U8 small nucleolar RNA: a 130-nucleotide sequence from Scyliorhinus torazame. The source organism's lineage runs through Eukaryota, Metazoa, Bilateria, Elasmobranchii and Scyliorhinus. The base pairs follow the family's consensus structure, which is taken from published work. By type it is a C/D-box small nucleolar RNA. It scores 77 bits against the family's covariance model. Rfam 15.1 lists 1,597 matches to the family in 457 species. On this family, see Peculis et al., Gene 2001: "The U8 snoRNA gene family: identification and characterization of distinct, functional U8 genes in Xenopus".
RNA sequence: UCGUCAGCGAGGUAUAUCCUUACUUGUUACUCCUCCGGGAGUUUCAGAACGUGAUGAAUGGGGUGUAUGAGCCGAUGAUUAACUCGCUCCCAACCCUGAGGACUUAACAACCCCUCAGGGCCCUUCUGAU
Dot-bracket structure: .......................(((..(((((....)))))..))).....................((.(.(.(....)..).).))....((((((((...........))))))))..........